[Rfam]
Annotation:
A member of the RNA family "Yersinia sRNA 251" from Brenneria goodwinii, 194 nucleotides long. The family's consensus secondary structure was predicted with RNAfold.

RNA sequence: CAUACGCGAUGAGCGUGCGCUGGCAUAGCUCCGAGCGCACACAGUCUUGUUUACCGAACGACACGAUGCCAAUCAUGUCAUCUUCCGCAAAACGCUCCAGCGCAUCACGCAGUCCGGAUUUAACCCCAGAAGGUAAAUCACACUGCGUAAUAUCACCAUUCACGAUUACCGUUACAUUUUCACCCAGACGAGUA
Numbered sequence: 001c002a003u004a005c006g007c008g009a010u011g012a013g014c015g016u017g018c019g020c021u022g023g024c025a026u027a028g029c030u031c032c033g034a035g036c037g038c039a040c041a042c043a044g045u046c047u048u049g050u051u052u053a054c055c056g057a058a059c060g061a062c063a064c065g066a067u068g069c070c071a072a073u074c075a076u077g078u079c080a081u082c083u084u085c086c087g088c089a090a091a092a093c094g095c096u097c098c099a100g101c102g103c104a105u106c107a108c109g110c111a112g113u114c115c116g117g118a119u120u121u122a123a124c125c126c127c128a129g130a131a132g133g134u135a136a137a138u139c140a141c142a143c144u145g146c147g148u149a150a151u152a153u154c155a156c157c158a159u160u161c162a163c164g165a166u167u168a169c170c171g172u173u174a175c176a177u178u179u180u181c182a183c184c185c186a187g188a189c190g191a192g193u194a
Stems, first nucleotide, its partner, number of pairs: 003053002006050003015040005061078003065074003083112002086109002093102003114192001117189001119188003126133002137166003144158002171183002174180001
It is annotated as an antisense RNA.